[Rfam]
RNA: c-di-GMP-I-GGC riboswitch aptamer
Organism: Sphingobium nicotianae
RNA sequence: CUCGAUAAAGGCAAACCGUCGGCAACGGCGGGACGCAAAGCCUCCGGUCCCGGGUCACUCGGGAUAGCGGGGUUACCGAAG
Numbered sequence: 001c002u003c004g005a006u007a008a009a010g011g012c013a014a015a016c017c018g019u020c021g022g023c024a025a026c027g028g029c030g031g032g033a034c035g036c037a038a039a040g041c042c043u044c045c046g047g048u049c050c051c052g053g054g055u056c057a058c059u060c061g062g063g064a065u066a067g068c069g070g071g072g073u074u075a076c077c078g079a080a081g
Stems, first nucleotide, its partner, number of pairs: 001081001003078002011036002016031006034067001039074004044070003047065006